[Rfam]
L31-Actinobacteria ribosomal protein leader: a 43-nucleotide sequence from Amycolatopsis mediterranei. The base pairs follow the family's consensus structure, which is taken from published work. Lineage of the source: Bacteria > Actinomycetota > Actinomycetes > Pseudonocardiaceae > Amycolatopsis mediterranei. The family's RNA type in Rfam is cis-regulatory leader. The family is grouped with related families in Rfam's "Ribosomal Protein L31 Leader clan".

RNA sequence: CCGGCGCCGGUUCACCCCGUGGAACGACUGGGGACCCGGAGCC
Numbered sequence: 001c002c003g004g005c006g007c008c009g010g011u012u013c014a015c016c017c018c019g020u021g022g023a024a025c026g027a028c029u030g031g032g033g034a035c036c037c038g039g040a041g042c043c
Stems, first nucleotide, its partner, number of pairs: 003043003007039004015033004019028002